[Rfam]
Rfam assigns this 148-nucleotide RNA sequence from Neoaquamicrobium microcysteis to the family "Alphaproteobacterial sRNA ar45". The match comes from Rfam's covariance-model search (157 bits).
RNA sequence: GCCCAAAGUCGCACGUGCCUGUGGGUGUCCGCCGUCCCCUCGUUCGGUGAGGAAAACGGUAAGGUACCUGGAGCCAACCACUCCAGUCGGUCAGUCGGCCAACCGCCUGAACCGAGGACACCUUGAAGCAACGACGGUGCGGGCCUUU
Numbered sequence: 001g002c003c004c005a006a007a008g009u010c011g012c013a014c015g016u017g018c019c020u021g022u023g024g025g026u027g028u029c030c031g032c033c034g035u036c037c038c039c040u041c042g043u044u045c046g047g048u049g050a051g052g053a054a055a056a057c058g059g060u061a062a063g064g065u066a067c068c069u070g071g072a073g074c075c076a077a078c079c080a081c082u083c084c085a086g087u088c089g090g091u092c093a094g095u096c097g098g099c100c101a102a103c104c105g106c107c108u109g110a111a112c113c114g115a116g117g118a119c120a121c122c123u124u125g126a127a128g129c130a131a132c133g134a135c136g137g138u139g140c141g142g143g144c145c146u147u148u
Stems, first nucleotide, its partner, number of pairs: 001144004008135004016130003023123008031060005038052005068086005087115004093108002096105003